[Rfam]
RNA: Iron response element II
RNA sequence: GGAUUAUCGGAAGCAGUGACUUCCAUAAUUU
Numbered sequence: 001g002g003a004u005u006a007u008c009g010g011a012a013g014c015a016g017u018g019a020c021u022u023c024c025a026u027a028a029u030u031u
Base pairs, nucleotide, nucleotide: 001031002030003029004028005027006026007025009024010023011022012021013020014018